[Rfam]
Nucleotides: 131
Stems, first nucleotide, its partner, number of pairs: 003037007013030006049080001051078002057072002084126001086124010
Number, partner (000 for none) and nucleotide at each position: 001000g002000u003037u004036c005035c006034c007033u008032u009031g010000a011000a012000a013030u014029u015028a016027g017026u018025c019000c020000c021000g022000u023000g024000a025018g026017g027016c028015u029014a030013a031009u032008a033007a034006g035005g036004g037003a038000g039000g040000u041000g042000a043000u044000g045000c046000u047000a048000g049080g050000c051078g052077u053000a054000u055000u056000g057072u058071g059000u060000c061000a062000a063000a064000u065000u066000a067000u068000g069000u070000c071058c072057a073000a074000u075000u076000a077052g078051c079000u080049u081000a082000g083000u084126g085000u086124a087123a088122c089121u090120u091119c092118c093117u094116a095115u096000u097000a098000g099000c100000u101000u102000c103000a104000c105000a106000a107000a108000a109000u110000g111000a112000a113000g114000c115095a116094u117093a118092g119091g120090a121089a122088g123087u124086u125000u126084u127000u128000u129000u130000a131000u
This 131-nucleotide sequence from Natranaerobius thermophilus belongs to the Rfam family "PyrR binding site".
From the family's description: This family represents the PyrR binding site and terminator structure. This RNA structure is found upstream of a variety of genes involved in pyrimidine biosynthesis and transport. The alignment also includes a portion of the antiterminator structure.
NCBI's taxonomy places the organism under Bacteria, Bacillota, Natranaerobiaceae, Natranaerobius, Natranaerobius thermophilus.
It scores 56 bits against the family's covariance model.
Pairs were carried over by alignment from the consensus structure, which is taken from published work.